[Rfam]
MIR390 microRNA precursor family: a 140-nucleotide RNA sequence from Nyssa sinensis. The match comes from Rfam's covariance-model search (98 bits). On this family, see Gustafson et al., Nucleic Acids Res 2005: "ASRP: the Arabidopsis Small RNA Project Database".
RNA sequence: UAGGAGGAUCUGUAAAGCUCAGGAGGGAUAGCGCCAUGGAUAAUGAUGGUGGCGGUGGUUGGUUAAUUUUAGACUUUGUUUGGGUGUGUUUUUUAUAUCGUCAGUGGCGCUAUCUAUCCUGAGUUUCACGGCUUCUUCUU
Numbered sequence: 001u002a003g004g005a006g007g008a009u010c011u012g013u014a015a016a017g018c019u020c021a022g023g024a025g026g027g028a029u030a031g032c033g034c035c036a037u038g039g040a041u042a043a044u045g046a047u048g049g050u051g052g053c054g055g056u057g058g059u060u061g062g063u064u065a066a067u068u069u070u071a072g073a074c075u076u077u078g079u080u081u082g083g084g085u086g087u088g089u090u091u092u093u094u095a096u097a098u099c100g101u102c103a104g105u106g107g108c109g110c111u112a113u114c115u116a117u118c119c120u121g122a123g124u125u126u127c128a129c130g131g132c133u134u135c136u137u138c139u140u
Base pairs, nucleotide, nucleotide: 010131016125017124018123019122020121021120022119023118024117026115027114028113029112030111031110032109033108034107035106036105037104